Rfam assigns this 133-nucleotide RNA to the family "Small nucleolar RNA SNORA49".
Rfam describes the family as follows. The snoRNA ACA49 has no identified RNA target. NB genomic sequence 1-nt different from published.
Rfam classes the family as an H/ACA-box small nucleolar RNA.

RNA sequence: CUUCCUCAGCCUUACUCCAGGGGCUUCUUGCCUGUAGAGUGCCCUGGCAUUGCCUGAGGAUAGAGGAGAAAGCACAGCUCCCUCCCUAGCAAGACUCUGCUUUCUUGUGGGGCCUACAGAUUGGGCUGACAGC
Numbered sequence: 001c002u003u004c005c006u007c008a009g010c011c012u013u014a015c016u017c018c019a020g021g022g023g024c025u026u027c028u029u030g031c032c033u034g035u036a037g038a039g040u041g042c043c044c045u046g047g048c049a050u051u052g053c054c055u056g057a058g059g060a061u062a063g064a065g066g067a068g069a070a071a072g073c074a075c076a077g078c079u080c081c082c083u084c085c086c087u088a089g090c091a092a093g094a095c096u097c098u099g100c101u102u103u104c105u106u107g108u109g110g111g112g113c114c115u116a117c118a119g120a121u122u123g124g125g126c127u128g129a130c131a132g133c
Stems, first nucleotide, its partner, number of pairs: 003060007011052001017047006023040004071127003075123002084112005091106004